c-di-GMP-I riboswitch aptamer: a 76-nucleotide RNA from Anaerofustis stercorihominis. Pairs were carried over by alignment from the consensus structure, which is taken from published work.
RNA sequence: AUUAAAUAUGGGCAAAACUGUGGAAACACAGUGACGCAAAACUAUAGGGCCUGUAAAAUGGCAGCCAGUUGCAUUC
Numbered sequence: 001a002u003u004a005a006a007u008a009u010g011g012g013c014a015a016a017a018c019u020g021u022g023g024a025a026a027c028a029c030a031g032u033g034a035c036g037c038a039a040a041a042c043u044a045u046a047g048g049g050c051c052u053g054u055a056a057a058a059u060g061g062c063a064g065c066c067a068g069u070u071g072c073a074u075u076c
Stems, first nucleotide, its partner, number of pairs: 012037002017032006040070004047066002049062003